A member of the RNA family "mir-1 microRNA precursor family" from Salvelinus namaycush, 76 nucleotides long. A search with the family's covariance model found it, with a score of 64 bits. Pairs were carried over by alignment from the consensus structure, which was predicted with RNAalifold. For this family Rfam cites "microRNAs: tiny regulators with great potential" (Ambros, Cell, 2001). The source organism's lineage runs through Eukaryota, Bilateria, Gnathostomata, Euteleosteomorpha and Salvelinus. This family represents the microRNA (miRNA) mir-1 family. miRNAs are transcribed as ~70nt precursors (modelled here) and subsequently processed by the Dicer enzyme to give a ~22nt product.

[Rfam]
RNA sequence: CCUGUGAAGACAUGCUUCCUUAUAUCACCAUAUGAAUACUGGUGUUAUGGAAUGUAAGGAAGUGUGUGGUUACAAG
Numbered sequence: 001c002c003u004g005u006g007a008a009g010a011c012a013u014g015c016u017u018c019c020u021u022a023u024a025u026c027a028c029c030a031u032a033u034g035a036a037u038a039c040u041g042g043u044g045u046u047a048u049g050g051a052a053u054g055u056a057a058g059g060a061a062g063u064g065u066g067u068g069g070u071u072a073c074a075a076g
Base pairs, nucleotide, nucleotide: 007070010067011066012065013064014063015062016061017060018059019058020057021056022055023054024053025052028050029049030048031047032046